[Rfam]
RNA sequence: GGGAAACGGCGACCGGGCUUGGGACAAGAGCCAUCCCAAGUCCAAGGCCAGAUAGGCUCA
Dot-bracket structure: ..............((((((((((...[[[[[.))))))))))...........]]]]].
Annotation: The family of this 60-nucleotide RNA from Myotis lucifugus is "Ma3 gene ribosomal frameshift signal". Pairs were carried over by alignment from the consensus structure, which is taken from published work. Its family is annotated with translational frameshifting in the Gene Ontology. The organism belongs to Myotis, within Eukaryota. Rfam's curators put it in the seed alignment. The family has 12 seed sequences and 565 matches in Rfam 15.1.